[Rfam]
RNA sequence: UUGUCUCAGGUUUGUGGUUGAAAGUCGAUGCCAGAUGCAGGCGAAGCGAUCCACGUAAGAUAAUUCAAUAGAGAAUUGUUGAUCAUGGUGCGUCUUAGAAGUAAGUCCAGCCGGUUUUACCGAGAGAAGGAGUUGUGAUGCGAACACUGAGCUAAACUUCCAGCUGGCGAGUGUGGGGGAAAAGACCAGGUCAACUGAGACAG
Numbered sequence: 001u002u003g004u005c006u007c008a009g010g011u012u013u014g015u016g017g018u019u020g021a022a023a024g025u026c027g028a029u030g031c032c033a034g035a036u037g038c039a040g041g042c043g044a045a046g047c048g049a050u051c052c053a054c055g056u057a058a059g060a061u062a063a064u065u066c067a068a069u070a071g072a073g074a075a076u077u078g079u080u081g082a083u084c085a086u087g088g089u090g091c092g093u094c095u096u097a098g099a100a101g102u103a104a105g106u107c108c109a110g111c112c113g114g115u116u117u118u119a120c121c122g123a124g125a126g127a128a129g130g131a132g133u134u135g136u137g138a139u140g141c142g143a144a145c146a147c148u149g150a151g152c153u154a155a156a157c158u159u160c161c162a163g164c165u166g167g168c169g170a171g172u173g174u175g176g177g178g179g180a181a182a183a184g185a186c187c188a189g190g191u192c193a194a195c196u197g198a199g200a201c202a203g
Stems, first nucleotide, its partner, number of pairs: 001203009012194003015188005028174003031041001033095007050088002055083001058080002062076001064074001086181001107167005112122004126160004135152002
The record is a 203-nucleotide sequence from Acetobacterium woodii, which matches "raiA RNA" in Rfam. The family's consensus secondary structure is taken from published work.